RNA: Small nucleolar RNA U105B
RNA sequence: CCACGUGUGGCUGAUGACAACGCUCCUGCUGAGGCUCUGUGAUUGUCCAGUUUCAAAGUAAACGCCCUGACGCACUGUGG
Numbered sequence: 001c002c003a004c005g006u007g008u009g010g011c012u013g014a015u016g017a018c019a020a021c022g023c024u025c026c027u028g029c030u031g032a033g034g035c036u037c038u039g040u041g042a043u044u045g046u047c048c049a050g051u052u053u054c055a056a057a058g059u060a061a062a063c064g065c066c067c068u069g070a071c072g073c074a075c076u077g078u079g080g
Stems, first nucleotide, its partner, number of pairs: 005075005010021001012019002029050003033046001